This 327-nucleotide RNA from Erpornis zantholeuca belongs to the Rfam family "7SK RNA". A search with the family's covariance model found it, with a score of 141 bits. The source organism's lineage runs through Eukaryota, Theropoda, Passeriformes, Sylvioidea and Erpornis. A reference for the family is Wassarman and Steitz (1991), "Structural analyses of the 7SK ribonucleoprotein (RNP), the most abundant human small RNP of unknown function", Mol Cell Biol. 7SK was discovered as an abundant small nuclear RNA in the mid-70s but a possible function has only recently been suggested. Two independent studies have found that 7SK RNA binds the CDK9/cyclin T complex (known as elongation factor P-TEFb). P-TEFb activates transcription by phosphorylating the C-terminal domain of RNA polymerase II. This process is negatively regulated by the 7SK RNP. The secondary structure of 7SK RNA shown here was proposed by Wasserman and Steitz on the basis of chemical modification and enzymatic cleavage experiments.
[Rfam]
RNA sequence: GGAUGUGAGGGCAGUCUGGCUGUGAGAUCUGAUAUACCACUGAUUGCUGGAUUGAUUUUACUUGUCUGGCUAGCUUAGGCAGGUGUCCCCUUUCUUCCUCAGCAUUCCAUGUGUGCUCCCCUUGGAGCUGUGUGCCUGGUAAAUGAAGACAGCCACCCCAGCAGACACGGUAUUGUUCACUGGUCAAGGAUGUGUGGCAGCUGUGCUCCCCUGCUGGAAGCUCUAGGUAAGAUCAAGGUCUGUUUGUAGAAGAAUGUAGGGUAGUCAAACACCCAGUACUAAAGACAAUCCAAAUGAGAAGCUCCAUGCAGCAGUCUGCCAGUGGCU
Numbered sequence: 001g002g003a004u005g006u007g008a009g010g011g012c013a014g015u016c017u018g019g020c021u022g023u024g025a026g027a028u029c030u031g032a033u034a035u036a037c038c039a040c041u042g043a044u045u046g047c048u049g050g051a052u053u054g055a056u057u058u059u060a061c062u063u064g065u066c067u068g069g070c071u072a073g074c075u076u077a078g079g080c081a082g083g084u085g086u087c088c089c090c091u092u093u094c095u096u097c098c099u100c101a102g103c104a105u106u107c108c109a110u111g112u113g114u115g116c117u118c119c120c121c122u123u124g125g126a127g128c129u130g131u132g133u134g135c136c137u138g139g140u141a142a143a144u145g146a147a148g149a150c151a152g153c154c155a156c157c158c159c160a161g162c163a164g165a166c167a168c169g170g171u172a173u174u175g176u177u178c179a180c181u182g183g184u185c186a187a188g189g190a191u192g193u194g195u196g197g198c199a200g201c202u203g204u205g206c207u208c209c210c211c212u213g214c215u216g217g218a219a220g221c222u223c224u225a226g227g228u229a230a231g232a233u234c235a236a237g238g239u240c241u242g243u244u245u246g247u248a249g250a251a252g253a254a255u256g257u258a259g260g261g262u263a264g265u266c267a268a269a270c271a272c273c274c275a276g277u278a279c280u281a282a283a284g285a286c287a288a289u290c291c292a293a294a295u296g297a298g299a300a301g302c303u304c305c306a307u308g309c310a311g312c313a314g315u316c317u318g319c320c321a322g323u324g325g326c327u
Stems, first nucleotide, its partner, number of pairs: 001108003006101006013093002018090002024087002027084005033078001035073001037069003042066003046061001116170002121164001122139004127135002140161001148157001200270001202268001206264002209261006221252002224249001227247005292327001298320001301315003305311001
Dot-bracket structure: (((..((((((.((...((....((.(((((.(.(.(((..(((.(..............)..))))))...)....).))))).)).)).))..))))))....))).......((...(((((.((.....))))))(.......(........)...)..)....)).............................(.(...((.((((((......((.(..(((((...........))))).).))...)))))).))...).).....................(.....(..(((.(.....).)))....)......)